Rfam assigns this 75-nucleotide RNA sequence from Alligator mississippiensis to the family "Mammalian CPEB3 ribozyme". Pairs were carried over by alignment from the consensus structure, which is taken from published work.
RNA sequence: AACUGCUGCAAUGGCCUUAGCAGAAAGACUCACAUUGCAGACCUGUCAGAUUCUAAUGAAUCUGCAAAUUCUGCU
Numbered sequence: 001a002a003c004u005g006c007u008g009c010a011a012u013g014g015c016c017u018u019a020g021c022a023g024a025a026a027g028a029c030u031c032a033c034a035u036u037g038c039a040g041a042c043c044u045g046u047c048a049g050a051u052u053c054u055a056a057u058g059a060a061u062c063u064g065c066a067a068a069u070u071c072u073g074c075u
Base pairs, nucleotide, nucleotide: 013043014042015040019075020074021073022072023071024070025069028036047064048063049062050061051060052059053058
Dot-bracket structure: ............[[[...(((((((..(.......)...].]]...(((((((....)))))))....)))))))